Shown here is a 91-nucleotide sequence from Cynara cardunculus, a member of the family "Small nucleolar RNA snoR26".
On this family, see Brown et al., RNA 2001: "Multiple snoRNA gene clusters from Arabidopsis".
The source organism's lineage runs through Eukaryota, Viridiplantae, Tracheophyta, asterids and Cynara cardunculus subsp. cardunculus.
By type it is a C/D-box small nucleolar RNA.
Gene Ontology terms of the family: RNA processing and nucleolus.
RNA sequence: UUAGCAUCGAUGAUGAUACUUUUAACUUCGUUAUCCUUGCACUUUGAUUCAUAAUGAAGAGAACCAUGGGGAAAGUAAUUCUGAGAUGCUC
Numbered sequence: 001u002u003a004g005c006a007u008c009g010a011u012g013a014u015g016a017u018a019c020u021u022u023u024a025a026c027u028u029c030g031u032u033a034u035c036c037u038u039g040c041a042c043u044u045u046g047a048u049u050c051a052u053a054a055u056g057a058a059g060a061g062a063a064c065c066a067u068g069g070g071g072a073a074a075g076u077a078a079u080u081c082u083g084a085g086a087u088g089c090u091c
Stems, first nucleotide, its partner, number of pairs: 003090006